The family of this 44-nucleotide RNA from Nocardia huaxiensis is "L31-Actinobacteria ribosomal protein leader". By type it is a cis-regulatory leader. NCBI's taxonomy places the organism under Bacteria, Actinomycetota, Actinomycetes, Nocardiaceae, Nocardia.

RNA sequence: UCGGUUCCGGUUCACGUCUCACAAUCGUCAGGCGACCCGGGGCC
Numbered sequence: 001u002c003g004g005u006u007c008c009g010g011u012u013c014a015c016g017u018c019u020c021a022c023a024a025u026c027g028u029c030a031g032g033c034g035a036c037c038c039g040g041g042g043c044c
Stems, first nucleotide, its partner, number of pairs: 003044003007040004015034005021028002